pemK RNA: a 101-nucleotide RNA from Xylanibacillus composti.

RNA sequence: AUAAUGAUACUUCCGUCCAGCCACAGCUCUGCUUUAGGCAGAUCACGCAAUGGGGGCGGCUUGCAGCGAUCCUGGGAGAGGUAUUCGGACUAUACCUAUGA
Numbered sequence: 001a002u003a004a005u006g007a008u009a010c011u012u013c014c015g016u017c018c019a020g021c022c023a024c025a026g027c028u029c030u031g032c033u034u035u036a037g038g039c040a041g042a043u044c045a046c047g048c049a050a051u052g053g054g055g056g057c058g059g060c061u062u063g064c065a066g067c068g069a070u071c072c073u074g075g076g077a078g079a080g081g082u083a084u085u086c087g088g089a090c091u092a093u094a095c096c097u098a099u100g101a
Stems, first nucleotide, its partner, number of pairs: 012098001013059006060078003064074003079097006

The family's RNA type in Rfam is cis-regulatory element.